[Rfam]
RNA sequence: GGCAAGGGCACUCUGUGUCACAUUGAUUUUUUACCACAAGUGGAACAAUUUGUAACCUUGCUAGAUAAAAAUUCCAUUUCUAGCUUCUACUUUAUUGCUUUAUUAAUAAGUUUUAAAGUUUUAACAGAAAUGUAAACAGAUUUA
Number, nucleotide and partner (000 for none) at each position: 001g000002g061003c060004a059005a058006g057007g056008g000009c000010a053011c052012u000013c000014u047015g046016u045017g000018u043019c042020a041021c040022a000023u038024u000025g037026a000027u000028u000029u000030u000031u000032u000033a000034c000035c000036a000037c025038a023039a000040g021041u020042g019043g018044a000045a016046c015047a014048a000049u000050u000051u000052g011053u010054a000055a000056c007057c006058u005059u004060g003061c002062u000063a000064g000065a000066u000067a143068a142069a141070a000071a000072u135073u134074c132075c000076a131077u130078u129079u128080c127081u000082a000083g000084c000085u123086u000087c000088u000089a119090c118091u117092u116093u115094a114095u000096u000097g111098c110099u000100u000101u000102a000103u000104u000105a000106a000107u000108a000109a000110g098111u097112u000113u000114u094115a093116a092117a091118g090119u089120u000121u000122u000123a085124a000125c000126a000127g080128a079129a078130a077131u076132g074133u000134a073135a072136a000137c000138a000139g000140a000141u069142u068143u067144a000

A member of the RNA family "Small nucleolar RNA psi18S-841/snoR66" from Lucilia cuprina, 144 nucleotides long.
Rfam describes the family as follows. psi18S-841 is a member of the H/ACA class of snoRNA. This family is responsible for guiding the modification of uridine 841 in Drosophila 18S rRNA to pseudouridine.
The family is grouped with related families in Rfam's "SNORA28 clan".
The source organism's lineage runs through Eukaryota, Eumetazoa, Muscomorpha, Cyclorrhapha and Lucilia.
It is annotated as an H/ACA-box small nucleolar RNA.
Gene Ontology terms of the family: nucleolus and RNA processing.